[Rfam]
Shown here is a 120-nucleotide RNA from Aegilops tauschii, a member of the family "MIR9672 microRNA precursor family". The organism belongs to Aegilops tauschii, within Eukaryota. Its family is annotated with RISC complex and miRNA-mediated post-transcriptional gene silencing in the Gene Ontology.
RNA sequence: GUGAAGAUGAUGCUUAAUGACAGUCGUGGUAUCCUAGAAGAGCCAGGCGACUGUCUACGCUGGCCAUUAAGCAUCGUCUUCACCUAGGACACCACGACUGUCAUUAAGCAUCGCCUUCAC
Numbered sequence: 001g002u003g004a005a006g007a008u009g010a011u012g013c014u015u016a017a018u019g020a021c022a023g024u025c026g027u028g029g030u031a032u033c034c035u036a037g038a039a040g041a042g043c044c045a046g047g048c049g050a051c052u053g054u055c056u057a058c059g060c061u062g063g064c065c066a067u068u069a070a071g072c073a074u075c076g077u078c079u080u081c082a083c084c085u086a087g088g089a090c091a092c093c094a095c096g097a098c099u100g101u102c103a104u105u106a107a108g109c110a111u112c113g114c115c116u117u118c119a120c
Base pairs, nucleotide, nucleotide: 001120002119003118004117005116006115009112010111011110012109013108014107015106016105017104018103019102020101021100022099023098024097025096026095027094028093029092030091032089033088034087035086036085037084040081041080
Dot-bracket structure: ((((((..((((((((((((((((((((((.((((((..((......................................))..)))))).))))))))))))))))))))))..))))))